[Rfam]
RNA sequence: GAUGUCGAAUUCCAGAGCCUUCGUAUAAUGCCGGGGAUAUGGCCCUGCAGUUUCUACCAGACGACCGUAAAUCGUUGGACUACGAGGAAGAGCAGAAAUGUC
Numbered sequence: 001g002a003u004g005u006c007g008a009a010u011u012c013c014a015g016a017g018c019c020u021u022c023g024u025a026u027a028a029u030g031c032c033g034g035g036g037a038u039a040u041g042g043c044c045c046u047g048c049a050g051u052u053u054c055u056a057c058c059a060g061a062c063g064a065c066c067g068u069a070a071a072u073c074g075u076u077g078g079a080c081u082a083c084g085a086g087g088a089a090g091a092g093c094a095g096a097a098a099u100g101u102c
Stems, first nucleotide, its partner, number of pairs: 019087007029049003033045003058078001060076005

Purine riboswitch aptamer: a 102-nucleotide RNA from Paenalicyclobacillus ferrooxydans. The organism belongs to Paenalicyclobacillus, within Bacteria. It scores 74 bits against the family's covariance model.